[Rfam]
RNA sequence: CGGUUAAAGAGUGCGUAGUCGGGUUAUUUGCCAGCAAUAAAGGUGCAGUCUCUAACUGUAUAUUGUGCUGGUACUUUGAUCUAGGAACUGGAUAAAGGUUAUGGUAUUCGACAGCGAGGGGUGAAAAUUAAUGACCUGUUGAGGAGCGACUGAUGCGAAAGCGGUAAUCUAUGACGGGUUUGACGAUAAAGCGCGUAGGCAGGAGUAUCGAAGGCGAUUAGAGACCGUCGUAGUUCUUUGCAGUAAACGAUGCCAACAGGAAUGCAAGUGCUGUGUUCCUAGGGAAACUGAGUGUAUGGGCUCUGGGGAUAGUACAGGCGCAAGCUAGAAACUUGAGGAAAU
Numbered sequence: 001c002g003g004u005u006a007a008a009g010a011g012u013g014c015g016u017a018g019u020c021g022g023g024u025u026a027u028u029u030g031c032c033a034g035c036a037a038u039a040a041a042g043g044u045g046c047a048g049u050c051u052c053u054a055a056c057u058g059u060a061u062a063u064u065g066u067g068c069u070g071g072u073a074c075u076u077u078g079a080u081c082u083a084g085g086a087a088c089u090g091g092a093u094a095a096a097g098g099u100u101a102u103g104g105u106a107u108u109c110g111a112c113a114g115c116g117a118g119g120g121g122u123g124a125a126a127a128u129u130a131a132u133g134a135c136c137u138g139u140u141g142a143g144g145a146g147c148g149a150c151u152g153a154u155g156c157g158a159a160a161g162c163g164g165u166a167a168u169c170u171a172u173g174a175c176g177g178g179u180u181u182g183a184c185g186a187u188a189a190a191g192c193g194c195g196u197a198g199g200c201a202g203g204a205g206u207a208u209c210g211a212a213g214g215c216g217a218u219u220a221g222a223g224a225c226c227g228u229c230g231u232a233g234u235u236c237u238u239u240g241c242a243g244u245a246a247a248c249g250a251u252g253c254c255a256a257c258a259g260g261a262a263u264g265c266a267a268g269u270g271c272u273g274u275g276u277u278c279c280u281a282g283g284g285a286a287a288c289u290g291a292g293u294g295u296a297u298g299g300g301c302u303c304u305g306g307g308g309a310u311a312g313u314a315c316a317g318g319c320g321c322a323a324g325c326u327a328g329a330a331a332c333u334u335g336a337g338g339a340a341a342u
Stems, first nucleotide, its partner, number of pairs: 001305003011194004018187003085181003088177003096170007103147001107143008118129002155162002199241002201238004209233001213229004252301003256293002259279008282289002307334002317326003
A member of the RNA family "Microsporidia small subunit ribosomal RNA" from Gurleya vavrai, 342 nucleotides of a longer RNA.
Taxonomically the source falls in Gurleya (Eukaryota, Fungi, Microsporidia, Gurleyidae).
Clan: SSU clan.
The family has 46 seed sequences and 1,035 matches in Rfam 15.1.
On this family, see Yusupov et al., Science 2001: "Crystal structure of the ribosome at 5.5 A resolution".